[Rfam]
RNA: Small nucleolar RNA SNORD83
RNA sequence: GCCACAUGAUGAGUACAGUAGCGUCAGUAGCUCUCGGGCUGUGAUGACCUGCUAUCUAUCACCCUUUUCUGAUGGCU
Numbered sequence: 001g002c003c004a005c006a007u008g009a010u011g012a013g014u015a016c017a018g019u020a021g022c023g024u025c026a027g028u029a030g031c032u033c034u035c036g037g038g039c040u041g042u043g044a045u046g047a048c049c050u051g052c053u054a055u056c057u058a059u060c061a062c063c064c065u066u067u068u069c070u071g072a073u074g075g076c077u
Base pairs, nucleotide, nucleotide: 001076002075003074004073030039031038032037